[Rfam]
RNA sequence: UUGCGAAACGGAAAUGAUGCCUUCCGACUGAACCGCCUUAAAAAAGCUGAUGGCGUCUACUAAAAU
Numbered sequence: 001u002u003g004c005g006a007a008a009c010g011g012a013a014a015u016g017a018u019g020c021c022u023u024c025c026g027a028c029u030g031a032a033c034c035g036c037c038u039u040a041a042a043a044a045a046g047c048u049g050a051u052g053g054c055g056u057c058u059a060c061u062a063a064a065a066u
Stems, first nucleotide, its partner, number of pairs: 010025004016057006035047002038044001
The family of this 66-nucleotide RNA from Olivibacter sp. LS-1 is "Fluoride riboswitch aptamer (crcB RNA motif)". Taxonomically the source falls in Olivibacter (Bacteria, Pseudomonadati, Sphingobacteriia, Sphingobacteriales). The family's consensus secondary structure is taken from published work.